[Rfam]
About this RNA:
Rfam assigns this 118-nucleotide RNA from Labrenzia sp. THAF82 to the family "Guanidine-I riboswitch aptamer". A reference for the family is Barrick et al. (2004), "New RNA motifs suggest an expanded scope for riboswitches in bacterial genetic control", Proc Natl Acad Sci U S A. This family represents a conserved RNA structure found upstream of the ykkC and yxkD genes in Bacillus subtilis and related genes in other bacteria. Gene Ontology term of the family: regulation of gene expression. The family has 100 seed sequences and 1,509 matches in Rfam 15.1.
RNA sequence: GUGCAGCGCGCCUAGGGAUCCGGUCUGACAAGACGCAGGACCGAGAGGUGCAAGCCGGAUGAAUUGGCUCUUCAGCCGACAUAAUCCGGUGACACGGCGGGACAAAAGCCCGGGAGAC
Numbered sequence: 001g002u003g004c005a006g007c008g009c010g011c012c013u014a015g016g017g018a019u020c021c022g023g024u025c026u027g028a029c030a031a032g033a034c035g036c037a038g039g040a041c042c043g044a045g046a047g048g049u050g051c052a053a054g055c056c057g058g059a060u061g062a063a064u065u066g067g068c069u070c071u072u073c074a075g076c077c078g079a080c081a082u083a084a085u086c087c088g089g090u091g092a093c094a095c096g097g098c099g100g101g102a103c104a105a106a107a108g109c110c111c112g113g114g115a116g117a118c
Base pairs, nucleotide, nucleotide: 008051009050010049011048012047015042016041020039021038022036023034024033025032026031054090055089056088057087058086059085060084093113095116099111100110101109